RNA: Small nucleolar RNA SNORA77
Organism: Cyprinus carpio
RNA sequence: GCAGACUCGCUCUGUUUAAGUCUGACGAAUCCAGACUUAGACUUUUUAUGUCUGCGACAGUAACGUUAGAAGGACGUUAUAACCUGCCUUGCCAUUCACUUGGGAGGUGACCGUGCCUUCUCAGACAUUUUA
Numbered sequence: 001g002c003a004g005a006c007u008c009g010c011u012c013u014g015u016u017u018a019a020g021u022c023u024g025a026c027g028a029a030u031c032c033a034g035a036c037u038u039a040g041a042c043u044u045u046u047u048a049u050g051u052c053u054g055c056g057a058c059a060g061u062a063a064c065g066u067u068a069g070a071a072g073g074a075c076g077u078u079a080u081a082a083c084c085u086g087c088c089u090u091g092c093c094a095u096u097c098a099c100u101u102g103g104g105a106g107g108u109g110a111c112c113g114u115g116c117c118u119u120c121u122c123a124g125a126c127a128u129u130u131u132a
Stems, first nucleotide, its partner, number of pairs: 001055006014042007022034003067123001068121006074114003078110001079108001084106002087103001